RNA sequence: GAAAAAGCAAAGACCAAUGAUUGUCGGUGAAGUGGUCUUUCGUCAACUUCAGGAAAAUUAUAUGCACCGUAAAAUGGGUGAAUCGCUGAGGUUAUACUCAUGACAGCAGAUUCAAUCCACGGUGCUACAUUU
Numbered sequence: 001g002a003a004a005a006a007g008c009a010a011a012g013a014c015c016a017a018u019g020a021u022u023g024u025c026g027g028u029g030a031a032g033u034g035g036u037c038u039u040u041c042g043u044c045a046a047c048u049u050c051a052g053g054a055a056a057a058u059u060a061u062a063u064g065c066a067c068c069g070u071a072a073a074a075u076g077g078g079u080g081a082a083u084c085g086c087u088g089a090g091g092u093u094a095u096a097c098u099c100a101u102g103a104c105a106g107c108a109g110a111u112u113c114a115a116u117c118c119a120c121g122g123u124g125c126u127a128c129a130u131u132u
Stems, first nucleotide, its partner, number of pairs: 005049003011038002014035003065124006079114006
The record is a 132-nucleotide RNA sequence from Taxus chinensis, which matches "Small nucleolar RNA snoR74" in Rfam.
By type it is an H/ACA-box small nucleolar RNA.
Rfam 15.1 lists 1,404 matches to the family in 223 species.
A search with the family's covariance model found it, with a score of 62 bits.
NCBI's taxonomy places the organism under Eukaryota, Streptophytina, Cupressales, Taxaceae, Taxus.